[Rfam]
Makes More Granules Regulator RNA (mmgR): a 78-nucleotide sequence from Sphingomonas sp. Leaf231. The match comes from Rfam's covariance-model search (46 bits). A reference for the family is Corbino et al. (2005), "Evidence for a second class of S-adenosylmethionine riboswitches and other regulatory RNA motifs in alpha-proteobacteria", Genome Biol. The family's RNA type in Rfam is small RNA. The source organism's lineage runs through Bacteria, Pseudomonadota, Sphingomonadales, Sphingomonadaceae and Sphingomonas. The base pairs follow the family's consensus structure.
RNA sequence: AGAGCAGGCCUUUCAGGCAUCCUCUCCUAAAAACUUCAAACGGCCGGCCCCUUGGGGCUGGCCUUUUUUUCGUCCCUC
Numbered sequence: 001a002g003a004g005c006a007g008g009c010c011u012u013u014c015a016g017g018c019a020u021c022c023u024c025u026c027c028u029a030a031a032a033a034c035u036u037c038a039a040a041c042g043g044c045c046g047g048c049c050c051c052u053u054g055g056g057g058c059u060g061g062c063c064u065u066u067u068u069u070u071c072g073u074c075c076c077u078c
Stems, first nucleotide, its partner, number of pairs: 008018004042063009